[Rfam]
RNA sequence: GGGGGCGACAUGGCUUCGACGUGGGUCGCGAAACUCUGGGUGCAUGCCGAGGAACAGAUAACCUCGUAAAUCCAGCUGUAACACUUAUAGUUGCCAACGACGACAACUACGCAUUAGCUGCUUAAAAACCAGUUGAAUGCCCUCUGACCGGAUGUGCCUGUGCGUUCGGGGUCCAGGGGUCACCCACAUAGGACCGCGGGGAGGGUGUGCUCAGCACGCAAACCGUUAAAUCCAAUCUGAGCAGGCCGUGAGUCUUCCCUGCCCUUCGGGUAGCUCACGGUGAGAUUAAAGAAGGGAUAAGCAUGUAGACCUCAUAGCGGAGGGCUUGCGGACGCGGGUUCGAUUCCCGCCGCCUCCACCA
Numbered sequence: 001g002g003g004g005g006c007g008a009c010a011u012g013g014c015u016u017c018g019a020c021g022u023g024g025g026u027c028g029c030g031a032a033a034c035u036c037u038g039g040g041u042g043c044a045u046g047c048c049g050a051g052g053a054a055c056a057g058a059u060a061a062c063c064u065c066g067u068a069a070a071u072c073c074a075g076c077u078g079u080a081a082c083a084c085u086u087a088u089a090g091u092u093g094c095c096a097a098c099g100a101c102g103a104c105a106a107c108u109a110c111g112c113a114u115u116a117g118c119u120g121c122u123u124a125a126a127a128a129c130c131a132g133u134u135g136a137a138u139g140c141c142c143u144c145u146g147a148c149c150g151g152a153u154g155u156g157c158c159u160g161u162g163c164g165u166u167c168g169g170g171g172u173c174c175a176g177g178g179g180u181c182a183c184c185c186a187c188a189u190a191g192g193a194c195c196g197c198g199g200g201g202a203g204g205g206u207g208u209g210c211u212c213a214g215c216a217c218g219c220a221a222a223c224c225g226u227u228a229a230a231u232c233c234a235a236u237c238u239g240a241g242c243a244g245g246c247c248g249u250g251a252g253u254c255u256u257c258c259c260u261g262c263c264c265u266u267c268g269g270g271u272a273g274c275u276c277a278c279g280g281u282g283a284g285a286u287u288a289a290a291g292a293a294g295g296g297a298u299a300a301g302c303a304u305g306u307a308g309a310c311c312u313c314a315u316a317g318c319g320g321a322g323g324g325c326u327u328g329c330g331g332a333c334g335c336g337g338g339u340u341c342g343a344u345u346c347c348c349g350c351c352g353c354c355u356c357c358a359c360c361a
Stems, first nucleotide, its partner, number of pairs: 001357007020330008034317002037314004043305005048066005054079004059074001113138003117133004141179006148169006157192006197225003211239001245281009257270003263296002265293003334350005
The record is a 361-nucleotide RNA sequence from Woeseia oceani, which matches "transfer-messenger RNA" in Rfam. The match comes from Rfam's covariance-model search (231 bits). The family's consensus secondary structure is taken from published work. It is annotated as a non-coding RNA gene. Gene Ontology term of the family: RNA catabolic process.